[Rfam]
The family of this 155-nucleotide RNA sequence from Aquitalea sp. FJL05 is "FMN riboswitch aptamer (RFN element)". NCBI's taxonomy places the organism under Bacteria, Pseudomonadota, Neisseriales, Chromobacteriaceae, Aquitalea. The RFN element is a highly conserved domain that is found frequently in the 5'-untranslated regions of prokaryotic mRNAs that encode for flavin mononucleotide (FMN) biosynthesis and transport proteins. Pairs were carried over by alignment from the consensus structure, which is taken from published work. Its family is annotated with FMN binding in the Gene Ontology.
RNA sequence: CUACGUCUUCAGGGCGGGGUGCAACUCCCCACCGGCGGUAUGGCCUGCACACCAGCAGGCCGAGCCCGCGAGCGCCUUUUUCUGAUGAGAAAGGGUCAGCAGAUCUGGUGCGAUGCCAGAGCCGACGGUGAUAGUCCGGAUGAAAGAAGAUGACA
Numbered sequence: 001c002u003a004c005g006u007c008u009u010c011a012g013g014g015c016g017g018g019g020u021g022c023a024a025c026u027c028c029c030c031a032c033c034g035g036c037g038g039u040a041u042g043g044c045c046u047g048c049a050c051a052c053c054a055g056c057a058g059g060c061c062g063a064g065c066c067c068g069c070g071a072g073c074g075c076c077u078u079u080u081u082c083u084g085a086u087g088a089g090a091a092a093g094g095g096u097c098a099g100c101a102g103a104u105c106u107g108g109u110g111c112g113a114u115g116c117c118a119g120a121g122c123c124g125a126c127g128g129u130g131a132u133a134g135u136c137c138g139g140a141u142g143a144a145a146g147a148a149g150a151u152g153a154c155a
Stems, first nucleotide, its partner, number of pairs: 004152007017029003031135002033124002035069004064122002072100002104120005126138003